A member of the RNA family "small nucleolar RNA snoR135" from Olea europaea, 154 nucleotides long.
[Rfam]
Nucleotides: 154
Stems, first nucleotide, its partner, number of pairs: 004071007015049006088148011102135004
Number, partner (000 for none) and nucleotide at each position: 001000a002000c003000a004071g005070c006069a007068g008067a009066g010065a011000u012000u013000g014000u015049g016048u017047g018046u019045a020044u021000c022000g023000a024000c025000g026000u027000u028000g029000u030000g031000c032000a033000a034000u035000a036000u037000g038000a039000a040000a041000u042000u043000a044020a045019u046018g047017c048016a049015c050000u051000u052000u053000g054000u055000u056000c057000g058000a059000a060000a061000g062000a063000g064000u065010u066009c067008u068007c069006u070005g071004c072000a073000a074000u075000a076000c077000u078000g079000a080000u081000u082000u083000u084000u085000a086000a087000u088148g089147g090146g091145g092144a093143a094142g095141g096140u097139g098138g099000g100000c101000a102135g103134u104133u105132g106000u107000g108000u109000u110000u111000c112000a113000a114000u115000u116000c117000u118000u119000c120000c121000g122000u123000u124000g125000a126000a127000u128000c129000c130000u131000u132105c133104a134103a135102c136000a137000a138098u139097c140096a141095u142094c143093u144092u145091c146090c147089c148088c149000a150000c151000a152000u153000u154000c
About this RNA: The match comes from Rfam's covariance-model search (135 bits). Gene Ontology terms of the family: RNA processing and nucleolus. Rfam classes the family as an H/ACA-box small nucleolar RNA.